[Rfam]
The family of this 107-nucleotide sequence from Nocardiopsis sp. JB363 is "ALIL pseudoknot". The base pairs follow the family's consensus structure, which is taken from published work. The match comes from Rfam's covariance-model search (71 bits). The family's RNA type in Rfam is cis-regulatory element.
RNA sequence: AGCAUCGCGGAGCUCGACCGCCCACACAUCAGGUAAGAGCGUUCAUCGACAUCCACCAGCACCAGUUCGGGGUCGAGCCGAUCUGCCGCACGCUGCAGGUCGCCCCG
Numbered sequence: 001a002g003c004a005u006c007g008c009g010g011a012g013c014u015c016g017a018c019c020g021c022c023c024a025c026a027c028a029u030c031a032g033g034u035a036a037g038a039g040c041g042u043u044c045a046u047c048g049a050c051a052u053c054c055a056c057c058a059g060c061a062c063c064a065g066u067u068c069g070g071g072g073u074c075g076a077g078c079c080g081a082u083c084u085g086c087c088g089c090a091c092g093c094u095g096c097a098g099g100u101c102g103c104c105c106c107g
Base pairs, nucleotide, nucleotide: 007021008020009019010018068107069106070105071104072103079102080101082099083098084097085096086095088093